[Rfam]
RNA: MIR168 microRNA precursor family
RNA sequence: GCCGUCGUCGCCGCUGAUUCGCUUGGUGCAGGUCGGGACCGGGACGAGUCCGGGCGACCGGAGCCCGAUCCCGCCUUGCAUCAACUGAAUCGGCGACGGGGAGCGACG
Numbered sequence: 001g002c003c004g005u006c007g008u009c010g011c012c013g014c015u016g017a018u019u020c021g022c023u024u025g026g027u028g029c030a031g032g033u034c035g036g037g038a039c040c041g042g043g044a045c046g047a048g049u050c051c052g053g054g055c056g057a058c059c060g061g062a063g064c065c066c067g068a069u070c071c072c073g074c075c076u077u078g079c080a081u082c083a084a085c086u087g088a089a090u091c092g093g094c095g096a097c098g099g100g101g102a103g104c105g106a107c108g
Stems, first nucleotide, its partner, number of pairs: 013094002017090004023084010034073005040067004